[Rfam]
RNA sequence: AGAGCGUAAGUUCAAGGCCAAAGCAGAAAACACUCUCAGUGCAGCCUGUCAGAUUCCAGUAAAUCUGCAAAUUCUACU
Numbered sequence: 001a002g003a004g005c006g007u008a009a010g011u012u013c014a015a016g017g018c019c020a021a022a023g024c025a026g027a028a029a030a031c032a033c034u035c036u037c038a039g040u041g042c043a044g045c046c047u048g049u050c051a052g053a054u055u056c057c058a059g060u061a062a063a064u065c066u067g068c069a070a071a072u073u074c075u076a077c078u
Base pairs, nucleotide, nucleotide: 016046017045018044022078023077025075026074027073028072031041032040050067051066052065053064054063055062
RNA: Mammalian CPEB3 ribozyme